[Rfam]
RNA sequence: GUGCCCUGCCUCUGAUGAAACCAAUGUUGGUAGGGACAUCUGACGAUGUUGAUGAAUGCCAACAGCUCUGAUGGUGGCGC
Numbered sequence: 001g002u003g004c005c006c007u008g009c010c011u012c013u014g015a016u017g018a019a020a021c022c023a024a025u026g027u028u029g030g031u032a033g034g035g036a037c038a039u040c041u042g043a044c045g046a047u048g049u050u051g052a053u054g055a056a057u058g059c060c061a062a063c064a065g066c067u068c069u070g071a072u073g074g075u076g077g078c079g080c
Base pairs, nucleotide, nucleotide: 001080002079003078004077005076
RNA: Small nucleolar RNA SNORD74
Organism: Dasypus novemcinctus